[Rfam]
Overview:
Small nucleolar RNA F1/F2/snoR5a: a 143-nucleotide sequence from Ensete ventricosum. A search with the family's covariance model found it, with a score of 73 bits. The family has 8 seed sequences and 325 matches in Rfam 15.1. The organism belongs to Ensete, within Eukaryota. About the family: This family contains F1, F2 and snoR5a sequences, all of which are members of the the H/ACA class of snoRNA that guide the sites of modification of uridines to pseudouridines.

RNA sequence: GAAUGCCAUUAGGUAUCUGAUGCUCGGUUCCAUGGUCGUGGCUGGGCAUCUCGUUAUGGUGGCAGAAAGGGAAGAGCAGGUCUUGCGACACGGGUUGCUCCAUUUCUCAUGAGCUUCCUGUUACUUAUUCCCUGCUUAAACGC
Numbered sequence: 001g002a003a004u005g006c007c008a009u010u011a012g013g014u015a016u017c018u019g020a021u022g023c024u025c026g027g028u029u030c031c032a033u034g035g036u037c038g039u040g041g042c043u044g045g046g047c048a049u050c051u052c053g054u055u056a057u058g059g060u061g062g063c064a065g066a067a068a069g070g071g072a073a074g075a076g077c078a079g080g081u082c083u084u085g086c087g088a089c090a091c092g093g094g095u096u097g098c099u100c101c102a103u104u105u106c107u108c109a110u111g112a113g114c115u116u117c118c119u120g121u122u123a124c125u126u127a128u129u130c131c132c133u134g135c136u137u138a139a140a141c142g143c
Base pairs, nucleotide, nucleotide: 004064005063006062007061008060009059019050020049021048022047023046024045025044026043027042028041030040032039075136076135077134078133079132090121091120092119093118094117097114098113099112